RNA sequence: AAGUUAUUCAUUUCUAAGUCGCUUUGGAUAAAAGCAUCUGCUAAAUGACUAAAU
Numbered sequence: 001a002a003g004u005u006a007u008u009c010a011u012u013u014c015u016a017a018g019u020c021g022c023u024u025u026g027g028a029u030a031a032a033a034g035c036a037u038c039u040g041c042u043a044a045a046u047g048a049c050u051a052a053a054u
Base pairs, nucleotide, nucleotide: 013043015040016039021035022034023033024032025031
Dot-bracket structure: ............(.((....(((((.....)))))...))..)...........
This 54-nucleotide RNA from Cyprinus carpio belongs to the Rfam family "UnaL2 LINE 3' element". Lineage of the source: Eukaryota > Opisthokonta > Teleostei > Cyprininae > Cyprinus carpio. Pairs were carried over by alignment from the consensus structure, which is taken from published work. About the family: The eel long interspersed element (LINE) UnaL2 and its partner short interspersed element (SINE) share a conserved 3' tail containing a stem-loop that is critical for their retrotransposition. Presumably, the first step of retrotransposition is the recognition of their 3' tails by UnaL2-encoded reverse transcriptase. A reference for the family is Baba et al. (2004), "Solution structure of an RNA stem-loop derived from the 3' conserved region of eel LINE UnaL2", RNA.